The family of this 80-nucleotide RNA from Brachypodium distachyon is "small nucleolar RNA snoR114". Taxonomically the source falls in Brachypodium (Eukaryota, Magnoliopsida, Mesangiospermae, commelinids). The family's consensus secondary structure was predicted with RNAalifold. Gene Ontology terms of the family: RNA processing and nucleolus. It is annotated as a C/D-box small nucleolar RNA. The literature on the family includes a 2009 paper in Nucleic Acids Res by Chen and Wu, "Mining small RNA sequencing data: a new approach to identify small nucleolar RNAs in Arabidopsis".

RNA sequence: GAGUGAUGAUGAAGAGCUCUUGUGACAACUUGGGUCUGUCAUAUUCAUCUGAUUCUGAUGAUAAGAGCUAAACUGAGCUC
Numbered sequence: 001g002a003g004u005g006a007u008g009a010u011g012a013a014g015a016g017c018u019c020u021u022g023u024g025a026c027a028a029c030u031u032g033g034g035u036c037u038g039u040c041a042u043a044u045u046c047a048u049c050u051g052a053u054u055c056u057g058a059u060g061a062u063a064a065g066a067g068c069u070a071a072a073c074u075g076a077g078c079u080c
Stems, first nucleotide, its partner, number of pairs: 001080004